[Rfam]
RNA sequence: AAGAUCAAUGAUGACUACUGUUAGUGUAUGAGUUACACAUGAUGAAUACAUGUCUGAAACUCUGAGGUCCAU
Numbered sequence: 001a002a003g004a005u006c007a008a009u010g011a012u013g014a015c016u017a018c019u020g021u022u023a024g025u026g027u028a029u030g031a032g033u034u035a036c037a038c039a040u041g042a043u044g045a046a047u048a049c050a051u052g053u054c055u056g057a058a059a060c061u062c063u064g065a066g067g068u069c070c071a072u
Base pairs, nucleotide, nucleotide: 003069004068005067006066
RNA: Small nucleolar RNA SNORD113/SNORD114 family